Rfam assigns this 94-nucleotide sequence from Chinchilla lanigera to the family "mir-326 microRNA precursor family". A reference for the family is Chiang et al. (2010), "Mammalian microRNAs: experimental evaluation of novel and previously annotated genes", Genes Dev. A search with the family's covariance model found it, with a score of 99 bits. NCBI's taxonomy places the organism under Eukaryota, Vertebrata, Amniota, Glires, Chinchilla. Its family is annotated with miRNA-mediated post-transcriptional gene silencing and RISC complex in the Gene Ontology. The base pairs follow the family's consensus structure, which was predicted with RNAalifold.
RNA sequence: CUCUUCUGUCUGUUGGGCUGGGGGCAGGGCCUUUGUGAAGGCGGAUGUGCAAGGAUCGCCUCUGGGCCCUUCCUCCAGUCCCGAGGCAGAUUCA
Numbered sequence: 001c002u003c004u005u006c007u008g009u010c011u012g013u014u015g016g017g018c019u020g021g022g023g024g025c026a027g028g029g030c031c032u033u034u035g036u037g038a039a040g041g042c043g044g045a046u047g048u049g050c051a052a053g054g055a056u057c058g059c060c061u062c063u064g065g066g067c068c069c070u071u072c073c074u075c076c077a078g079u080c081c082c083g084a085g086g087c088a089g090a091u092u093c094a
Base pairs, nucleotide, nucleotide: 005090006089007088008087009086010085011084015081016080017079018078019077020076021075022074023073024072026070027069028068029067030066031065032064039061040060041059042058043057044056